[Rfam]
RNA sequence: AUGGCGGAAAUCGAAAAGCCUUUAACAGAGUAGAUA
Numbered sequence: 001a002u003g004g005c006g007g008a009a010a011u012c013g014a015a016a017a018g019c020c021u022u023u024a025a026c027a028g029a030g031u032a033g034a035u036a
Stems, first nucleotide, its partner, number of pairs: 003020003010035003
Dot-bracket structure: ..(((....[[[.....)))............]]].

This 36-nucleotide RNA from Aquimarina algiphila belongs to the Rfam family "DUF805b RNA". Rfam classes the family as a cis-regulatory element. Lineage of the source: Bacteria > Bacteroidota > Flavobacteriia > Flavobacteriaceae > Aquimarina.